[Rfam]
RNA sequence: UUUAACUUUACAACGGAGGAUAGGAAUGAAGAAACCAUGUUUUCUGAAACUAUCCCGUCAAUACUCCUGCAUGCGUUAUGUCUGACAGGACAUAGGGUGUGAAGCACAGGUGGAUUCGGCAGAACGAAGGCUGCAGCCAUUCCUCUGGAAAAGGUAUGCCAACGGAUAUGCCGCACGGCUGAAAA
Numbered sequence: 001u002u003u004a005a006c007u008u009u010a011c012a013a014c015g016g017a018g019g020a021u022a023g024g025a026a027u028g029a030a031g032a033a034a035c036c037a038u039g040u041u042u043u044c045u046g047a048a049a050c051u052a053u054c055c056c057g058u059c060a061a062u063a064c065u066c067c068u069g070c071a072u073g074c075g076u077u078a079u080g081u082c083u084g085a086c087a088g089g090a091c092a093u094a095g096g097g098u099g100u101g102a103a104g105c106a107c108a109g110g111u112g113g114a115u116u117c118g119g120c121a122g123a124a125c126g127a128a129g130g131c132u133g134c135a136g137c138c139a140u141u142c143c144u145c146u147g148g149a150a151a152a153g154g155u156a157u158g159c160c161a162a163c164g165g166a167u168a169u170g171c172c173g174c175a176c177g178g179c180u181g182a183a184a185a
Base pairs, nucleotide, nucleotide: 018055019054020053021052022051023050031045033043034042056177057176058175066110067109068108069107070101071100072099073098074097076095077094078093079092080091081090082089083088117173118172119171120170121169125164126163129160130159131148132147133146135144136143
Dot-bracket structure: .................((((((.......(.((.......)).)....))))))(((.......(((((((((.((((((((....)))))))).))))).....))))......(((((...((..(((((.((......)).)))..........))..))....))))).)))........
Rfam assigns this 185-nucleotide RNA sequence from Ureibacillus massiliensis to the family "Group II catalytic intron D1-D4-5". Rfam describes the family as follows. Group II introns are found in rRNA, tRNA and mRNA of organelles in fungi, plants and protists, and also in mRNA in bacteria. The base pairs follow the family's consensus structure. It scores 89 bits against the family's covariance model. The literature on the family includes a 2001 paper in EMBO J by Chu et al., "Control of branch-site choice by a group II intron". Its family is annotated with Group II intron splicing in the Gene Ontology.